[Rfam]
RNA sequence: GGCCAUGAGGACAGGCGGGUUUGCUGACCUCGGGGCGUGAUGAACCUUUGGAGCCCCGAGG
Numbered sequence: 001g002g003c004c005a006u007g008a009g010g011a012c013a014g015g016c017g018g019g020u021u022u023g024c025u026g027a028c029c030u031c032g033g034g035g036c037g038u039g040a041u042g043a044a045c046c047u048u049u050g051g052a053g054c055c056c057c058g059a060g061g
Stems, first nucleotide, its partner, number of pairs: 002016003028061009
The record is a 61-nucleotide RNA from Pyrococcus abyssi, which matches "Small nucleolar RNA sR40" in Rfam. Rfam classes the family as a C/D-box small nucleolar RNA. For this family Rfam cites "Homologs of small nucleolar RNAs in Archaea" (Omer et al., Science, 2000). The family's consensus secondary structure was predicted with WAR.